[Rfam]
RNA: Actinobacteria sRNA Ms_IGR-7
RNA sequence: UGGAAGUGCCUUUCUUAACUGGCCUGAUUGAUGCGUAGAGAACACCAAUCCUCCCAGCUCAAGGGGCACUUUCCUUAUAUCGACACCCACCUACACAGGCAAUUCAUCGGUGGAUCGAG
Numbered sequence: 001u002g003g004a005a006g007u008g009c010c011u012u013u014c015u016u017a018a019c020u021g022g023c024c025u026g027a028u029u030g031a032u033g034c035g036u037a038g039a040g041a042a043c044a045c046c047a048a049u050c051c052u053c054c055c056a057g058c059u060c061a062a063g064g065g066g067c068a069c070u071u072u073c074c075u076u077a078u079a080u081c082g083a084c085a086c087c088c089a090c091c092u093a094c095a096c097a098g099g100c101a102a103u104u105c106a107u108c109g110g111u112g113g114a115u116c117g118a119g
Base pairs, nucleotide, nucleotide: 002073003072004071005070006069007068008067009066010065011064012063013062015061017059019057020056021055022054026050027049028048030046032044033043100117102115103114104113105112106111